[Rfam]
The family of this 76-nucleotide RNA from Leptotrombidium deliense is "mir-219 microRNA precursor family". Gene Ontology terms of the family: miRNA-mediated post-transcriptional gene silencing and RISC complex. The literature on the family includes a 2003 paper in Science by Lim et al., "Vertebrate microRNA genes". The source organism's lineage runs through Eukaryota, Protostomia, Ecdysozoa, Trombiculidae and Leptotrombidium. It scores 72 bits against the family's covariance model.
RNA sequence: UCAAGCUGUGAUUGUCCAAACGCAAUUCUUGUCGCCGUUCGAACACCAAGAACUGUGUGUGGACAUCAAUGCUUGA
Numbered sequence: 001u002c003a004a005g006c007u008g009u010g011a012u013u014g015u016c017c018a019a020a021c022g023c024a025a026u027u028c029u030u031g032u033c034g035c036c037g038u039u040c041g042a043a044c045a046c047c048a049a050g051a052a053c054u055g056u057g058u059g060u061g062g063a064c065a066u067c068a069a070u071g072c073u074u075g076a
Stems, first nucleotide, its partner, number of pairs: 002075005009068004014064005021057004026052006